[Rfam]
RNA sequence: GCCGUCCUUAUCUUGGGGUUGCGCGGCUGCUCAAUGAACGCGUGGUGAGAGCAGCACUGCUAACGCCUGAGCAACACGCUCGCGCCCGCCGCUCGGCGCGGCGCAAUUUUUGGAACC
Numbered sequence: 001g002c003c004g005u006c007c008u009u010a011u012c013u014u015g016g017g018g019u020u021g022c023g024c025g026g027c028u029g030c031u032c033a034a035u036g037a038a039c040g041c042g043u044g045g046u047g048a049g050a051g052c053a054g055c056a057c058u059g060c061u062a063a064c065g066c067c068u069g070a071g072c073a074a075c076a077c078g079c080u081c082g083c084g085c086c087c088g089c090c091g092c093u094c095g096g097c098g099c100g101g102c103g104c105a106a107u108u109u110u111u112g113g114a115a116c117c
Stems, first nucleotide, its partner, number of pairs: 006018004021060003026055007038046002082104005087098004